[Rfam]
RNA sequence: CUAAUCCGCCCGCGUCAUCUGGGGAGUAGCCAGCCGUCCUUCGGGACGGGCCACCGUGUCAACAUACUCGGCCGAGAGGUCGUGGUGCGGUGGAAGCGGGAGACCGCUUGGGCGAGACCAAUGGCAUCGACCUUCGUCCGGGCCGGGCGGCGGGUUUGAUGUCUAUUGGAAUCGCGAAGCCGCCCGGCCC
Dot-bracket structure: .................................(((..........))).(.(((((((((.......(((((....)))))))))))))))...(((((..................................................................................))).))..
A member of the RNA family "Manganese Mn2+ riboswitch aptamer (yybP-ykoY)" from Sphingopyxis italica, 190 nucleotides long. A search with the family's covariance model found it, with a score of 48 bits. This RNA was originally discovered in E. coli during a large scale screen and was named SraF. The family was later found to exist upstream of related families of protein genes in many bacteria, including the the yybP and ykoK genes in B. subtilis. The specific functions of these proteins are unknown, but this structured RNA element may be involved in their genetic regulation as a riboswitch. The organism belongs to Sphingopyxis, within Bacteria.